[Rfam]
RNA: Singlet oxygen resistance RNA X
Organism: Roseovarius nanhaiticus
RNA sequence: GCUCUUUUGACGGGAGCGCCACUACGGCGCGCUCGUCAUACCUCCCUGUUGGACUAUGGCCGAGCUUUAAGCUCGGCCUUUUUU
Numbered sequence: 001g002c003u004c005u006u007u008u009g010a011c012g013g014g015a016g017c018g019c020c021a022c023u024a025c026g027g028c029g030c031g032c033u034c035g036u037c038a039u040a041c042c043u044c045c046c047u048g049u050u051g052g053a054c055u056a057u058g059g060c061c062g063a064g065c066u067u068u069a070a071g072c073u074c075g076g077c078c079u080u081u082u083u084u
Base pairs, nucleotide, nucleotide: 008038009037010036011035012034013033014032058078059077060076061075062074063073064072065071